The family of this 54-nucleotide RNA sequence from Paracoccus tegillarcae is "COG3860 RNA". By type it is a cis-regulatory element. Lineage of the source: Bacteria > Pseudomonadati > Rhodobacterales > Paracoccaceae > Paracoccus. Pairs were carried over by alignment from the consensus structure, which is taken from published work.

RNA sequence: CGGUCCGCAGUUCACCGAGGCGUCGCCGGCCAUUUGGCCAAGCUGAACCUGCCA
Numbered sequence: 001c002g003g004u005c006c007g008c009a010g011u012u013c014a015c016c017g018a019g020g021c022g023u024c025g026c027c028g029g030c031c032a033u034u035u036g037g038c039c040a041a042g043c044u045g046a047a048c049c050u051g052c053c054a
Base pairs, nucleotide, nucleotide: 001017002016003015004014028039029038030037031036